The record is a 163-nucleotide sequence from Phyllotreta striolata, which matches "U12 minor spliceosomal RNA" in Rfam. Rfam links the family to the GO terms pre-mRNA branch point binding, U12 snRNP and mRNA branch site recognition.
RNA sequence: GUGCCUUAAACUAAUGAGUAAGGAAAAUAUACGAGCCUUGGUAACGCUUGGCUUACAUGCUAGUAAACUAUUUCUAGUACCUGAAUUUUUAUAGGGGUACAGGUCGUCCCGACGUAGCGGGCCUACUUUAGCCUGCCGAUUCGGUGAUUCAGCGAUCUGCCCC
Numbered sequence: 001g002u003g004c005c006u007u008a009a010a011c012u013a014a015u016g017a018g019u020a021a022g023g024a025a026a027a028u029a030u031a032c033g034a035g036c037c038u039u040g041g042u043a044a045c046g047c048u049u050g051g052c053u054u055a056c057a058u059g060c061u062a063g064u065a066a067a068c069u070a071u072u073u074c075u076a077g078u079a080c081c082u083g084a085a086u087u088u089u090u091a092u093a094g095g096g097g098u099a100c101a102g103g104u105c106g107u108c109c110c111g112a113c114g115u116a117g118c119g120g121g122c123c124u125a126c127u128u129u130a131g132c133c134u135g136c137c138g139a140u141u142c143g144g145u146g147a148u149u150c151a152g153c154g155a156u157c158u159g160c161c162c163c
Stems, first nucleotide, its partner, number of pairs: 004023005033054005040047001058079006094163005101158007110146001113143002116140001118135005
The literature on the family includes a 1997 paper in Trends Biochem Sci by Tarn and Steitz, "Pre-mRNA splicing: the discovery of a new spliceosome doubles the challenge".
The source organism's lineage runs through Eukaryota, Aparaglossata, Coleoptera, Galerucinae and Phyllotreta.
It is annotated as a spliceosomal small nuclear RNA.